[Rfam]
RNA sequence: UUCCGGUUCACGCCCCCGCAGCCGCGGAGGCGACCCGGGGA
Numbered sequence: 001u002u003c004c005g006g007u008u009c010a011c012g013c014c015c016c017c018g019c020a021g022c023c024g025c026g027g028a029g030g031c032g033a034c035c036c037g038g039g040g041a
Stems, first nucleotide, its partner, number of pairs: 001041001003038004011032004016027004
Dot-bracket structure: (.((((....((((.((((....)))).))))..))))..)
The record is a 41-nucleotide sequence from Ornithinimicrobium pratense, which matches "L31-Actinobacteria ribosomal protein leader" in Rfam. Taxonomically the source falls in Ornithinimicrobium (Bacteria, Actinomycetes, Micrococcales, Ornithinimicrobiaceae). The family's RNA type in Rfam is cis-regulatory leader. On this family, see Eckert and Weinberg, BMC Microbiol 2020: "Discovery of 20 novel ribosomal leader candidates in bacteria and archaea".